[Rfam]
The record is a 125-nucleotide RNA sequence from Bacillus gobiensis, which matches "SAM riboswitch aptamer (S box leader)" in Rfam. Taxonomically the source falls in Bacillus (Bacteria, Bacillati, Caryophanales, Bacillaceae). From the family's description: The SAM riboswitch is found upstream of a number of genes which code for proteins involved in methionine or cysteine biosynthesis in Gram-positive bacteria.
RNA sequence: UUCUUAUCAUGAGAGGUGGAGGGACUGGCCCGAAGAAACCUCAGCAACCGGUUAUGCAUGCUGUUCAAUCAGCUUGCACCAAGGUGCUAAAUCCAGCAAGCGUUCUUUUGCUUGAAAGAUAAGAG
Dot-bracket structure: ((((((((....(((((...(((.[[[[)))......)))))((((.(((((.........................)))..))))))...(]]]]((((((......))))))..)))))))))